[Rfam]
RNA: sodF sRNA
Nucleotides: 091
Base pairs, nucleotide, nucleotide: 001047002046003045006044007043008042010040014036015035016034017033020030021029053091054090055089056088057087058086059085060084061083062082063081064080065079066078067077068076
Number, partner (000 for none) and nucleotide at each position: 001047g002046u003045g004000c005000c006044c007043c008042c009000a010040c011000c012000u013000c014036g015035u016034g017033a018000u019000c020030g021029u022000c023000u024000u025000c026000u027000c028000a029021a030020c031000c032000u033017u034016c035015g036014c037000g038000u039000a040010g041000g042008g043007g044006g045003c046002g047001u048000c049000c050000a051000a052000c053091g054090g055089a056088a057087g058086a059085c060084c061083c062082c063081c064080g065079c066078a067077a068076g069000g070000a071000c072000g073000u074000g075000a076068c077067u078066u079065g080064c081063g082062g083061g084060g085059g086058u087057c088056u089055u090054c091053u